RNA sequence: AAGGUAUGGAUCGCUGUUAUCGACAGCACCUUCCCAGGUAGCCAGAGCCUUCAAGGCUACGUUCACUUCGGUGAUGGUUCUCCCCAAGUGCGAUUAGCGUUCGGUGGCUCGCACGGUGACCGUUUCUACGGUGAUGAACGC
Numbered sequence: 001a002a003g004g005u006a007u008g009g010a011u012c013g014c015u016g017u018u019a020u021c022g023a024c025a026g027c028a029c030c031u032u033c034c035c036a037g038g039u040a041g042c043c044a045g046a047g048c049c050u051u052c053a054a055g056g057c058u059a060c061g062u063u064c065a066c067u068u069c070g071g072u073g074a075u076g077g078u079u080c081u082c083c084c085c086a087a088g089u090g091c092g093a094u095u096a097g098c099g100u101u102c103g104g105u106g107g108c109u110c111g112c113a114c115g116g117u118g119a120c121c122g123u124u125u126c127u128a129c130g131g132u133g134a135u136g137a138a139c140g141c
Stems, first nucleotide, its partner, number of pairs: 006032001008030001013027006038060006046079004063074004110140002116135002119132005